[Rfam]
RNA sequence: GCCCUGCUUCUUAUGGAAGACUAGUGAUUUUGUUGUUCUGUAGUUCAUCUCACGACAACAAGUCACAGUCUGCCUUAUGGGGCCUGGC
Numbered sequence: 001g002c003c004c005u006g007c008u009u010c011u012u013a014u015g016g017a018a019g020a021c022u023a024g025u026g027a028u029u030u031u032g033u034u035g036u037u038c039u040g041u042a043g044u045u046c047a048u049c050u051c052a053c054g055a056c057a058a059c060a061a062g063u064c065a066c067a068g069u070c071u072g073c074c075u076u077a078u079g080g081g082g083c084c085u086g087g088c
Stems, first nucleotide, its partner, number of pairs: 002087002006083005012077002015074002018071005024066007032059006

Annotation: A member of the RNA family "mir-7 microRNA precursor family" from Anolis carolinensis, 88 nucleotides long. The sequence is in the family's curated seed alignment. Rfam's curators write: This family represents the microRNA (miRNA) precursor mir-7. For this family Rfam cites "microRNAs: tiny regulators with great potential" (Ambros, Cell, 2001). Pairs were carried over by alignment from the consensus structure, which was predicted with PFOLD.